The family of this 142-nucleotide RNA sequence from Paenibacillus albidus is "Group II catalytic intron D1-D4-4".
Group II introns are found in rRNA, tRNA and mRNA of organelles in fungi, plants and protists, and also in mRNA in bacteria.
It scores 87 bits against the family's covariance model.
The family has 90 seed sequences and 840 matches in Rfam 15.1.
Its family is annotated with Group II intron splicing in the Gene Ontology.
RNA sequence: UAGCCAGUGAAAGUCCGGUCGUGGGAGGGACCAAGCUCCCGCGUAGCUAGGAUUCUUAAGUAUGGUGAAAGCUGUACGUAAAAGCGAAUCGGCAAAAGUACCUGUCAGAGACAGGGUAGCAAACUACCAGGCCGUAACAUCA
Numbered sequence: 001u002a003g004c005c006a007g008u009g010a011a012a013g014u015c016c017g018g019u020c021g022u023g024g025g026a027g028g029g030a031c032c033a034a035g036c037u038c039c040c041g042c043g044u045a046g047c048u049a050g051g052a053u054u055c056u057u058a059a060g061u062a063u064g065g066u067g068a069a070a071g072c073u074g075u076a077c078g079u080a081a082a083a084g085c086g087a088a089u090c091g092g093c094a095a096a097a098g099u100a101c102c103u104g105u106c107a108g109a110g111a112c113a114g115g116g117u118a119g120c121a122a123a124c125u126a127c128c129a130g131g132c133c134g135u136a137a138c139a140u141c142a
Stems, first nucleotide, its partner, number of pairs: 020043005051090005056081003060077002065072002097117001101115005119135002